[Rfam]
RNA sequence: AAUUAUUUGUUAGCGCCAGACCCAAGAGGUUAACGAGGAUGUUGUUUAUCGAAAAUUCGGCGGAUGCAACACGGUUAGUAUAAUCGAUAGAUAUAUUACAAAAAGCAAAAUUAACAUUGUAAUAAAAAAUAUAUCACAUACAUUA
Dot-bracket structure: ...................(.((....)).)........(((((....((((....))))......)))))((((((...))))))...(((((((........((((........))))........)))))))..........